[Rfam]
RNA sequence: GGGAUGUGAUGAGUGGUUCGAACUCGUAUUAAAGAUGCGAGAUGGGUGUCCGCUCCAAAGCCUGGUUACGACAAUUGGGCACUCCCAGCUUAACCAAUCUGAUCCC
Numbered sequence: 001g002g003g004a005u006g007u008g009a010u011g012a013g014u015g016g017u018u019c020g021a022a023c024u025c026g027u028a029u030u031a032a033a034g035a036u037g038c039g040a041g042a043u044g045g046g047u048g049u050c051c052g053c054u055c056c057a058a059a060g061c062c063u064g065g066u067u068a069c070g071a072c073a074a075u076u077g078g079g080c081a082c083u084c085c086c087a088g089c090u091u092a093a094c095c096a097a098u099c100u101g102a103u104c105c106c
Base pairs, nucleotide, nucleotide: 001106002105003104004103014096015095016094017093018092023041024040025039026038027037044084045083046082047081048080049079050078063077064076065075066074